[Rfam]
Rfam assigns this 91-nucleotide RNA sequence from Tripterygium wilfordii to the family "Small nucleolar RNA snoR26". Taxonomically the source falls in Tripterygium (Eukaryota, Viridiplantae, Spermatophyta, eudicotyledons). The family's consensus secondary structure was predicted with WAR. Rfam 15.1 lists 611 matches to the family in 220 species. The family's RNA type in Rfam is C/D-box small nucleolar RNA. Gene Ontology terms of the family: RNA processing and nucleolus.
RNA sequence: UGAGCAUCGGUGAUGAAUUCUCACAAUCGUUAUCCUUGCACUUUGAUUGAUAGUGAAGAUAAUCAUGGGGACUGUAAUUUCUGAGAUGCUU
Numbered sequence: 001u002g003a004g005c006a007u008c009g010g011u012g013a014u015g016a017a018u019u020c021u022c023a024c025a026a027u028c029g030u031u032a033u034c035c036u037u038g039c040a041c042u043u044u045g046a047u048u049g050a051u052a053g054u055g056a057a058g059a060u061a062a063u064c065a066u067g068g069g070g071a072c073u074g075u076a077a078u079u080u081c082u083g084a085g086a087u088g089c090u091u
Stems, first nucleotide, its partner, number of pairs: 002091007